[Rfam]
RNA sequence: AUUUUCACUGCUGCACCGAGGGCACACACAUCUUCAGUGGGACUCGGAAUUCCUGGAGAAUCGCCUUUGUGAAAAGCUGGCAUAAUUUCUUUAAAUUCCAUCUCUUAGUUUCCCAUUUUGUUGUUUCAAAAAUAUAUCAAGAAACC
Numbered sequence: 001a002u003u004u005u006c007a008c009u010g011c012u013g014c015a016c017c018g019a020g021g022g023c024a025c026a027c028a029c030a031u032c033u034u035c036a037g038u039g040g041g042a043c044u045c046g047g048a049a050u051u052c053c054u055g056g057a058g059a060a061u062c063g064c065c066u067u068u069g070u071g072a073a074a075a076g077c078u079g080g081c082a083u084a085a086u087u088u089c090u091u092u093a094a095a096u097u098c099c100a101u102c103u104c105u106u107a108g109u110u111u112c113c114c115a116u117u118u119u120g121u122u123g124u125u126u127c128a129a130a131a132a133u134a135u136a137u138c139a140a141g142a143a144a145c146c
Base pairs, nucleotide, nucleotide: 006080010077011076012075016071017069018068019067020066021065022064023063026061039054040053041052042051086144087143088142089141090140091139096134
The record is a 146-nucleotide RNA from Tursiops truncatus, which matches "ODC internal ribosome entry site (IRES)" in Rfam. Gene Ontology term of the family: ribosome binding. A search with the family's covariance model found it, with a score of 126 bits. The source organism's lineage runs through Eukaryota, Bilateria, Deuterostomia, Sarcopterygii and Tursiops. Rfam 15.1 lists 437 matches to the family in 128 species. A reference for the family is Pyronnet et al. (2005), "Alternative splicing facilitates internal ribosome entry on the ornithine decarboxylase mRNA", Cell Mol Life Sci.